[Rfam]
RNA sequence: GCAGACUCACUCUGCACCUGACUGCAGCUUUCAGUCUCUGUGCUUUUUAAGUCUGCUAGAUAAACUAUCCAUGAUCACAGUAGUAACUUAGUUUUUCUAUAGACGAGUAACUGUGAUCAUGGAACAGUCAG
Number, nucleotide and partner (000 for none) at each position: 001g056002c055003a054004g053005a052006c051007u000008c000009a000010c000011u000012c000013u000014g043015c042016a041017c040018c000019u000020g037021a000022c034023u033024g032025c000026a000027g000028c000029u000030u000031u000032c024033a023034g022035u000036c000037u020038c000039u000040g017041u016042g015043c014044u000045u000046u000047u000048u000049a000050a000051g006052u005053c004054u003055g002056c001057u000058a000059g000060a000061u000062a000063a000064a000065c000066u000067a000068u000069c122070c121071a120072u119073g118074a117075u116076c000077a114078c113079a112080g111081u110082a000083g000084u000085a000086a108087c107088u106089u105090a000091g000092u000093u000094u000095u000096u000097c000098u000099a000100u000101a000102g000103a000104c000105g089106a088107g087108u086109a000110a081111c080112u079113g078114u077115g000116a075117u074118c073119a072120u071121g070122g069123a000124a000125c000126a000127g000128u000129c000130a000131g000

The family of this 131-nucleotide sequence from Microcaecilia unicolor is "Small nucleolar RNA SNORA77". On this family, see Schattner et al., RNA 2006: "A computational screen for mammalian pseudouridylation guide H/ACA RNAs". Rfam describes the family as follows. ACA63 (SNORA77) is a member of the H/ACA class of snoRNAs that guide the sites of modification of uridines to pseudouridines. Taxonomically the source falls in Microcaecilia (Eukaryota, Tetrapoda, Amphibia, Siphonopidae). The match comes from Rfam's covariance-model search (60 bits).